[Rfam]
The family of this 58-nucleotide RNA sequence from Streptococcus mutans is "Lacto-rpoB RNA". The base pairs follow the family's consensus structure, which is taken from published work.

RNA sequence: AUUUGUCGUUUGCUUUGGUUGAAAUAUUGUCCAAACAAAGCUCACAGCAGUUAAAUCA
Numbered sequence: 001a002u003u004u005g006u007c008g009u010u011u012g013c014u015u016u017g018g019u020u021g022a023a024a025u026a027u028u029g030u031c032c033a034a035a036c037a038a039a040g041c042u043c044a045c046a047g048c049a050g051u052u053a054a055a056u057c058a
Stems, first nucleotide, its partner, number of pairs: 008045002012041006019034003